[Rfam]
RNA sequence: AAUUCUGUUCGUAAGACAAGAGAAGCAUAUCUAUUCUAUAUCCCGAUAAGUACCAAUACCAUGGAG
Numbered sequence: 001a002a003u004u005c006u007g008u009u010c011g012u013a014a015g016a017c018a019a020g021a022g023a024a025g026c027a028u029a030u031c032u033a034u035u036c037u038a039u040a041u042c043c044c045g046a047u048a049a050g051u052a053c054c055a056a057u058a059c060c061a062u063g064g065a066g
Stems, first nucleotide, its partner, number of pairs: 003020002006018003010015001041065003050059003

Shown here is a 66-nucleotide RNA from Musa balbisiana, a member of the family "Plastid-clpP 5UTR RNA". The organism belongs to Musa, within Eukaryota. It is annotated as a cis-regulatory element. Rfam describes the family as follows. Plastid clpP is a non-coding RNA (ncRNA) recognised in plastids. It was found in the prime untranslated region (5UTR) of a protease complex subunit (clpP) in plastids, suggesting a posible cis-regulatory function.